[Rfam]
RNA sequence: AGCUUAUCCAGAAAGACGGAGGGAAAGGACCCGAUGAUGUCUUGGCAACCAACCAGCCUCAGGGAAUGGUGCCAAUUUCCGCCCGGUCAUCAACUGGGAUAGAUAAGAU
Numbered sequence: 001a002g003c004u005u006a007u008c009c010a011g012a013a014a015g016a017c018g019g020a021g022g023g024a025a026a027g028g029a030c031c032c033g034a035u036g037a038u039g040u041c042u043u044g045g046c047a048a049c050c051a052a053c054c055a056g057c058c059u060c061a062g063g064g065a066a067u068g069g070u071g072c073c074a075a076u077u078u079c080c081g082c083c084c085g086g087u088c089a090u091c092a093a094c095u096g097g098g099a100u101a102g103a104u105a106a107g108a109u
Base pairs, nucleotide, nucleotide: 001109003107004106005105006104007103008102013043014042015041016040017039021032022031023030027080028079029078044073045072046071047070049069050068053063054062077101082098083097084096085095086094087093
Dot-bracket structure: (.((((((....(((((...(((...[[[)))......)))))((((.((..((.......))....))))))...(]]].((((((.....))))))..))))))).)